[Rfam]
Rfam assigns this 115-nucleotide RNA from Phyllobacterium zundukense to the family "Alphaproteobacterial ar14".
The base pairs follow the family's consensus structure.
From the family's description: Smr14C2 was renamed NfeR1 (Nodule Formation Efficiency RNA) highly expressed in salt stress and during the symbiotic interaction on legume roots.
By type it is a small RNA.
For this family Rfam cites "A conserved alpha-proteobacterial small RNA contributes to osmoadaptation and symbiotic efficiency of rhizobia on legume roots" (Robledo et al., Environ Microbiol, 2017).
Its family is annotated with biological process involved in symbiotic interaction in the Gene Ontology.
RNA sequence: GAGGUCGUUGGGUUCUUCUCCUCCCAGAAACCCCAACCUGGAAUGUACUGCACCUCCUCCCGCGGUACAUUUGCAAUCAGGACCGCUGCACCUCCUCCCGCAGCGGUCCUUUUUC
Number, nucleotide and partner (000 for none) at each position: 001g000002a000003g000004g000005u000006c000007g037008u036009u035010g033011g032012g031013u030014u029015c000016u000017u000018c000019u000020c000021c000022u000023c000024c000025c000026a000027g000028a000029a014030a013031c012032c011033c010034c000035a009036a008037c007038c000039u000040g000041g072042a071043a070044u069045g068046u067047a066048c065049u064050g063051c000052a000053c000054c000055u000056c000057c000058u000059c000060c000061c000062g000063c050064g049065g048066u047067a046068c045069a044070u043071u042072u041073g000074c000075a000076a000077u000078c000079a110080g109081g108082a107083c106084c105085g104086c103087u102088g101089c100090a000091c000092c000093u000094c000095c000096u000097c000098c000099c000100g089101c088102a087103g086104c085105g084106g083107u082108c081109c080110u079111u000112u000113u000114u000115c000